A member of the RNA family "U7 small nuclear RNA" from Nomascus leucogenys, 62 nucleotides long. From the family's description: Animal histone pre-mRNAs are spliced by a different mechanism than nuclear pre-mRNAs and self-splicing introns. This processing involves the U7 snRNP, which contains only one RNA species: U7. The 5' end of U7 RNA is thought to base-pair to a conserved spacer element downstream of the cleavage site in histone pre-mRNA. This family contains a number of annotated U7 pseudogenes. The source organism's lineage runs through Eukaryota, Vertebrata, Boreoeutheria, Haplorrhini and Nomascus. The base pairs follow the family's consensus structure, which was predicted with PFOLD.

RNA sequence: CACAGUCAAGGCUCUUUUAGAAUUUGUCUAGUGGGUUUUCUGGUGAAAACUAGACUGCCCCC
Numbered sequence: 001c002a003c004a005g006u007c008a009a010g011g012c013u014c015u016u017u018u019a020g021a022a023u024u025u026g027u028c029u030a031g032u033g034g035g036u037u038u039u040c041u042g043g044u045g046a047a048a049a050c051u052a053g054a055c056u057g058c059c060c061c062c
Base pairs, nucleotide, nucleotide: 034059035058036057039054040053041052042051043050044049